[Rfam]
RNA sequence: CUGCAAAGAUGAUAAAUGCUGAACUCUCUCUUUCUGAGGCUUCAGUGAAGAAAAUCUUUACCAGAUUCUGAGCGGC
Dot-bracket structure: ((((...................................................................)))).
Small nucleolar RNA SNORD26: a 76-nucleotide RNA from Pelusios castaneus.
The family's RNA type in Rfam is C/D-box small nucleolar RNA.
Pairs were carried over by alignment from the consensus structure, which was predicted with PFOLD.
Gene Ontology terms of the family: RNA processing and nucleolus.
The source organism's lineage runs through Eukaryota, Deuterostomia, Vertebrata, Testudines and Pelusios.